[Rfam]
RNA sequence: AAACAAGGAAGUUCGACUAAGUUCCACCACGUCCUGUGGUGAACAUCGAACGGCUAACAUCCUGUUAG
Numbered sequence: 001a002a003a004c005a006a007g008g009a010a011g012u013u014c015g016a017c018u019a020a021g022u023u024c025c026a027c028c029a030c031g032u033c034c035u036g037u038g039g040u041g042a043a044c045a046u047c048g049a050a051c052g053g054c055u056a057a058c059a060u061c062c063u064g065u066u067a068g
Base pairs, nucleotide, nucleotide: 011051012050013049014048015047016046026040027039028038029037030036054068055067056066057065058064
This 68-nucleotide RNA sequence from Guptibacillus hwajinpoensis belongs to the Rfam family "Bacillaceae-1 RNA".
It scores 62 bits against the family's covariance model.
The family's RNA type in Rfam is small RNA.
NCBI's taxonomy places the organism under Bacteria, Bacillati, Bacillota, Caryophanales, Guptibacillus.